Shown here is a 109-nucleotide sequence from Symbiobacterium thermophilum, a member of the family "SAM riboswitch aptamer (S box leader)". The sequence is in the family's curated seed alignment. The source organism's lineage runs through Bacteria, Bacillati, Clostridia, Eubacteriales and Symbiobacterium thermophilum. The base pairs follow the family's consensus structure, which is taken from published work.
RNA sequence: CUCUUAUCAAGAGAAGCGGAGGGACCUGGCCCGAUGAAGCUUCGGCAACCAGCCUGCGUCACCAGGCAAGGUGCCAAGUCCAGCCGGGCAUACUACCGGGAGAUAAGAG
Numbered sequence: 001c002u003c004u005u006a007u008c009a010a011g012a013g014a015a016g017c018g019g020a021g022g023g024a025c026c027u028g029g030c031c032c033g034a035u036g037a038a039g040c041u042u043c044g045g046c047a048a049c050c051a052g053c054c055u056g057c058g059u060c061a062c063c064a065g066g067c068a069a070g071g072u073g074c075c076a077a078g079u080c081c082a083g084c085c086g087g088g089c090a091u092a093c094u095a096c097c098g099g100g101a102g103a104u105a106a107g108a109g
Stems, first nucleotide, its partner, number of pairs: 001109008013043005021032003026083004044075004049071002052067004079101001084099004